[Rfam]
RNA sequence: GUGUGCCUGGCUCCCUGUAUGCCACACAUGUAGCCCAACCCGUGGUGUGGUUGCCUGCCGUGGGUGGCGUGCAAGGGGCCAAGCAUGC
Numbered sequence: 001g002u003g004u005g006c007c008u009g010g011c012u013c014c015c016u017g018u019a020u021g022c023c024a025c026a027c028a029u030g031u032a033g034c035c036c037a038a039c040c041c042g043u044g045g046u047g048u049g050g051u052u053g054c055c056u057g058c059c060g061u062g063g064g065u066g067g068c069g070u071g072c073a074a075g076g077g078g079c080c081a082a083g084c085a086u087g088c
Base pairs, nucleotide, nucleotide: 001088002087003086004085005084006083008081009080010079011078012077013076014075016073017072018071019070020069021068022067023066024065027062028061029060

A member of the RNA family "mir-160 microRNA precursor family" from Dichanthelium oligosanthes, 88 nucleotides long. Rfam 15.1 lists 1,502 matches to the family in 247 species. Taxonomically the source falls in Dichanthelium (Eukaryota, Embryophyta, Mesangiospermae, commelinids). The match comes from Rfam's covariance-model search (86 bits). The literature on the family includes a 2002 paper in Cell by Rhoades et al., "Prediction of plant microRNA targets".